[Rfam]
RNA sequence: GUCGAGUUUGGUAAUGCAGGCUUGUAAUCUAAGUGGAGACAGACAAUAAGGUCAUGGGACAUUGGCUGAUCUCUUUGGGCUGGGUUCGGUAUUGCUCUUUACUGGCCUUCCCAUUCCAAGUCAGUUGAGUGUCCAGACUCGAGCGAAGGCCGGUUCAGACUCUCUUAGAGCGGAGACUGUGUGAGGCUCGUUUCACAGAGCAGCGUCCUUCUUCCGCUUUUGACGGUUGAAGGAUUAUGGGCUCAGGCUGUUGCCUCCCGAACCCAUUAUGACCCGAUAAGUCGGCUCCAACUGGACAA
Number, nucleotide and partner (000 for none) at each position: 001g040002u039003c038004g023005a022006g021007u020008u019009u018010g017011g000012u000013a000014a000015u000016g000017c010018a009019g008020g007021c006022u005023u004024g000025u000026a000027a000028u037029c036030u035031a000032a000033g000034u000035g030036g029037a028038g003039a002040c001041a000042g000043a000044c000045a000046a000047u000048a000049a000050g000051g000052u000053c000054a000055u299056g000057g297058g000059a000060c294061a293062u291063u290064g289065g286066c285067u284068g283069a282070u281071c000072u280073c000074u000075u277076u276077g275078g274079g273080c000081u271082g265083g264084g263085u262086u261087c260088g259089g258090u000091a251092u250093u000094g248095c000096u247097c246098u000099u000100u000101a000102c000103u000104g243105g242106c241107c240108u239109u000110c000111c233112c232113a000114u231115u230116c229117c000118a227119a000120g224121u223122c222123a218124g217125u216126u000127g164128a163129g162130u000131g160132u159133c158134c000135a000136g155137a154138c153139u152140c000141g151142a000143g150144c149145g000146a000147a000148g000149g144150c143151c141152g139153g138154u137155u136156c000157a000158g133159a132160c131161u000162c129163u128164c127165u170166u000167a000168g000169a000170g165171c000172g214173g213174a212175g211176a210177c000178u000179g206180u205181g204182u203183g000184a000185g000186g000187c198188u197189c000190g000191u000192u000193u000194c000195a000196c000197a188198g187199a000200g000201c000202a000203g182204c181205g180206u179207c000208c000209u000210u176211c175212u174213u173214c172215c000216g125217c124218u123219u000220u000221u000222g122223a121224c120225g000226g000227u118228u000229g116230a115231a114232g112233g111234a000235u000236u000237a000238u000239g108240g107241g106242c105243u104244c000245a000246g097247g096248c094249u000250g092251u091252u000253g000254c000255c000256u000257c000258c089259c088260g087261a086262a085263c084264c083265c082266a000267u000268u000269a000270u000271g081272a000273c079274c078275c077276g076277a075278u000279a000280a072281g070282u069283c068284g067285g066286c065287u000288c000289c064290a063291a062292c000293u061294g060295g000296a000297c057298a000299a055
A member of the RNA family "Plant signal recognition particle RNA" from Brassica carinata, 299 nucleotides long. Pairs were carried over by alignment from the consensus structure, which is taken from published work. A reference for the family is Wild et al. (2002), "Towards the structure of the mammalian signal recognition particle", Curr Opin Struct Biol. Clan: SRP clan. Taxonomically the source falls in Brassica (Eukaryota, Magnoliopsida, rosids, Brassicaceae). It scores 130 bits against the family's covariance model. By type it is a non-coding RNA gene.